[Rfam]
RNA sequence: AUAUACCUUGAGUGGCCAGAUUAUUGUGUAUUCAGAGAUCAUAAUAAUCUGGCCACUCAGUGUAUAU
Numbered sequence: 001a002u003a004u005a006c007c008u009u010g011a012g013u014g015g016c017c018a019g020a021u022u023a024u025u026g027u028g029u030a031u032u033c034a035g036a037g038a039u040c041a042u043a044a045u046a047a048u049c050u051g052g053c054c055a056c057u058c059a060g061u062g063u064a065u066a067u
Stems, first nucleotide, its partner, number of pairs: 004064003008060010019049010
This 67-nucleotide sequence from Pipistrellus kuhlii belongs to the Rfam family "mir-9256 microRNA precursor family".